[Rfam]
Nucleotides: 083
Stems, first nucleotide, its partner, number of pairs: 012037002017032006040077004045073003048068003055062002
Number, partner (000 for none) and nucleotide at each position: 001000u002000a003000a004000c005000a006000a007000a008000c009000a010000g011000g012037g013036c014000a015000a016000a017032c018031c019030u020029g021028g022027u023000g024000a025000a026000a027022g028021u029020c030019a031018g032017g033000g034000a035000c036013g037012c038000a039000a040077a041076g042075c043074c044000a045073u046072g047071g048068g049067u050066c051000u052000a053000a054000a055062g056061c057000g058000a059000a060000u061056g062055c063000c064000a065000g066050g067049a068048c069000g070000g071047c072046u073045a074043g075042g076041c077040u078000a079000c080000u081000a082000a083000a